[Rfam]
RNA sequence: AAUGCGGCUAGGGUAGCUCCCGAAAGCUGGUUCCCCUGAACCGGCCCGCCGCAUUCUUAUAUUCGUCAGGGG
Numbered sequence: 001a002a003u004g005c006g007g008c009u010a011g012g013g014u015a016g017c018u019c020c021c022g023a024a025a026g027c028u029g030g031u032u033c034c035c036c037u038g039a040a041c042c043g044g045c046c047c048g049c050c051g052c053a054u055u056c057u058u059a060u061a062u063u064c065g066u067c068a069g070g071g072g
Stems, first nucleotide, its partner, number of pairs: 001055008011021003026045005033072006